[Rfam]
RNA sequence: GAACCAGGGGGUCGGGUUGUUCUGCAUCGCGGAGCGACCUAGAGGUACAGGGAGUACCUCCUAAUCGGACCGGGUUCUGUGAAGC
Numbered sequence: 001g002a003a004c005c006a007g008g009g010g011g012u013c014g015g016g017u018u019g020u021u022c023u024g025c026a027u028c029g030c031g032g033a034g035c036g037a038c039c040u041a042g043a044g045g046u047a048c049a050g051g052g053a054g055u056a057c058c059u060c061c062u063a064a065u066c067g068g069a070c071c072g073g074g075u076u077c078u079g080u081g082a083a084g085c
Base pairs, nucleotide, nucleotide: 001077002076003075004074005073010071011070012069013068014040015039016038017037018036020034021033022032023031024030025029042060043059044058045057046056047055048054
RNA: ivy-DE RNA
Organism: Stutzerimonas stutzeri